[Rfam]
RNA: Group II catalytic intron D1-D4-5
Organism: Lachnospiraceae bacterium NK3A20
RNA sequence: GAGAACUGAUAUUCCGAUGGAUGAAAUGAGGGAGUAACGCCCUGAAGCGUCCACCCUGAUACUCCGAAUAGCGGAAGGCGUGCAACCGCCUUCUCUAAAAGUUUAUGGAGCUCGGUGAAGUCGGCAGAGAGGAACCGUAAGACUGGUUUCCAGACCAGGCACGAAAGCUGUCCAGAGGUGGAUGGUGUUGCCUAUAUGCCGGGGGUCGGAUAU
Numbered sequence: 001g002a003g004a005a006c007u008g009a010u011a012u013u014c015c016g017a018u019g020g021a022u023g024a025a026a027u028g029a030g031g032g033a034g035u036a037a038c039g040c041c042c043u044g045a046a047g048c049g050u051c052c053a054c055c056c057u058g059a060u061a062c063u064c065c066g067a068a069u070a071g072c073g074g075a076a077g078g079c080g081u082g083c084a085a086c087c088g089c090c091u092u093c094u095c096u097a098a099a100a101g102u103u104u105a106u107g108g109a110g111c112u113c114g115g116u117g118a119a120g121u122c123g124g125c126a127g128a129g130a131g132g133a134a135c136c137g138u139a140a141g142a143c144u145g146g147u148u149u150c151c152a153g154a155c156c157a158g159g160c161a162c163g164a165a166a167g168c169u170g171u172c173c174a175g176a177g178g179u180g181g182a183u184g185g186u187g188u189u190g191c192c193u194a195u196a197u198g199c200c201g202g203g204g205g206u207c208g209g210a211u212a213u
Base pairs, nucleotide, nucleotide: 018053019052020051021050022049023048031043032042034040054205055204056203057202064115065114066113067112068106069105070103071102072101073094074093075092076091077090078089079088080087122201123200124199125198126197131191133189134188135187136163137162138161143159144158167186168185169184170183171182172181173180174179
Dot-bracket structure: .................((((((.......((.(.....).))....))))))((((......(((((((((((((((((......))))))))......))).)).....))))......(((((....(.((((((....((.............)).)))...((((((((....))))))))))).).....)))))))))........